[Rfam]
RNA sequence: CUUGAGUGAGCCGAGCCAGAGAGGCGUUUCGGCUGCCUUCUCCCGGCCGUAGGUGGCCAGCAGCGCCUGUGCCUC
Number, nucleotide and partner (000 for none) at each position: 001c000002u000003u000004g000005a000006g000007u000008g000009a000010g000011c000012c000013g000014a000015g025016c024017c023018a000019g000020a000021g000022a000023g017024g016025c015026g000027u000028u000029u000030c000031g000032g070033c069034u000035g000036c000037c000038u065039u000040c000041u000042c000043c060044c000045g058046g000047c056048c055049g054050u000051a000052g000053g000054u049055g048056g047057c000058c045059a000060g043061c000062a000063g000064c000065g038066c000067c000068u000069g033070u032071g000072c000073c000074u000075c000
The record is a 75-nucleotide RNA sequence from Streptomyces oceani, which matches "ASpks TB sRNA" in Rfam. The base pairs follow the family's consensus structure, which is taken from published work. It is annotated as an antisense RNA.